[Rfam]
RNA: Small nucleolar RNA Z266
Organism: Cephalotus follicularis
RNA sequence: UGAAGGCAAGAAUGAUGAAUCAAUUAGAUGAGUGAAUGAAAUUCCUCAUUGUGAUCUGAACUUUUGAGGCAUAUUAUUUCUGACUUGCCUUUA
Numbered sequence: 001u002g003a004a005g006g007c008a009a010g011a012a013u014g015a016u017g018a019a020u021c022a023a024u025u026a027g028a029u030g031a032g033u034g035a036a037u038g039a040a041a042u043u044c045c046u047c048a049u050u051g052u053g054a055u056c057u058g059a060a061c062u063u064u065u066g067a068g069g070c071a072u073a074u075u076a077u078u079u080c081u082g083a084c085u086u087g088c089c090u091u092u093a
Stems, first nucleotide, its partner, number of pairs: 001093010